[Rfam]
RNA sequence: CCCUCCGAAGUUUCCCUUAGGAUAGCUGGAGCUCGACUGUACAGUUUCAUCCGGUAAAGCGAAUGAUUAGAGGUCUUGGGGUUGAAACAACCUCAACCUAUUCUCAAACUUUCAAUGGGUGAGAAGCCUGGCUUGCUUAAUUGAAGUCGGGCAACGAAUGAGAGAGCUCUAAGUGGGCCAUUUUUGGUAAGCAGAACUGGCGAUGCGGGAUGAACCGAACGCUCGGUUAAGGCGCCCAAAUCGACGCUCAUCAGACCCCACAAAAGGUGUUGGUUGAUCUAGACAGCAGGACGGUGGCCAUGGAAGUCGGAAUCCGCUAAGGAGUGUGUAACAACCCACCUGCCGAAUCAACUAGCCCUGAAAAUGGAUGGCGCUCAAGCGUCGUGCCUAUACCGGGCCGUUUGGGCAAACGGCGAAGCCCAAACGAGUAGGAGGGCGUGGGGGUCGUGACGCAGCCUUCGGCGCGAGCCUGGGUGAAACGGCCCCUAGUGAAGAU
Numbered sequence: 001c002c003c004u005c006c007g008a009a010g011u012u013u014c015c016c017u018u019a020g021g022a023u024a025g026c027u028g029g030a031g032c033u034c035g036a037c038u039g040u041a042c043a044g045u046u047u048c049a050u051c052c053g054g055u056a057a058a059g060c061g062a063a064u065g066a067u068u069a070g071a072g073g074u075c076u077u078g079g080g081g082u083u084g085a086a087a088c089a090a091c092c093u094c095a096a097c098c099u100a101u102u103c104u105c106a107a108a109c110u111u112u113c114a115a116u117g118g119g120u121g122a123g124a125a126g127c128c129u130g131g132c133u134u135g136c137u138u139a140a141u142u143g144a145a146g147u148c149g150g151g152c153a154a155c156g157a158a159u160g161a162g163a164g165a166g167c168u169c170u171a172a173g174u175g176g177g178c179c180a181u182u183u184u185u186g187g188u189a190a191g192c193a194g195a196a197c198u199g200g201c202g203a204u205g206c207g208g209g210a211u212g213a214a215c216c217g218a219a220c221g222c223u224c225g226g227u228u229a230a231g232g233c234g235c236c237c238a239a240a241u242c243g244a245c246g247c248u249c250a251u252c253a254g255a256c257c258c259c260a261c262a263a264a265a266g267g268u269g270u271u272g273g274u275u276g277a278u279c280u281a282g283a284c285a286g287c288a289g290g291a292c293g294g295u296g297g298c299c300a301u302g303g304a305a306g307u308c309g310g311a312a313u314c315c316g317c318u319a320a321g322g323a324g325u326g327u328g329u330a331a332c333a334a335c336c337c338a339c340c341u342g343c344c345g346a347a348u349c350a351a352c353u354a355g356c357c358c359u360g361a362a363a364a365u366g367g368a369u370g371g372c373g374c375u376c377a378a379g380c381g382u383c384g385u386g387c388c389u390a391u392a393c394c395g396g397g398c399c400g401u402u403u404g405g406g407c408a409a410a411c412g413g414c415g416a417a418g419c420c421c422a423a424a425c426g427a428g429u430a431g432g433a434g435g436g437c438g439u440g441g442g443g444g445u446c447g448u449g450a451c452g453c454a455g456c457c458u459u460c461g462g463c464g465c466g467a468g469c470c471u472g473g474g475u476g477a478a479a480c481g482g483c484c485c486c487u488a489g490u491g492a493a494g495a496u
Stems, first nucleotide, its partner, number of pairs: 001436006011024001013022003027171007045124008057112001058110002064106003069101001071099003076096006083089001126152009177201004182196005206217003221398005227392001231388003240385001242384001245381003265359003269356010286343005292316003298310002317321001322337001326335002399426009437491001439488010455475002461470003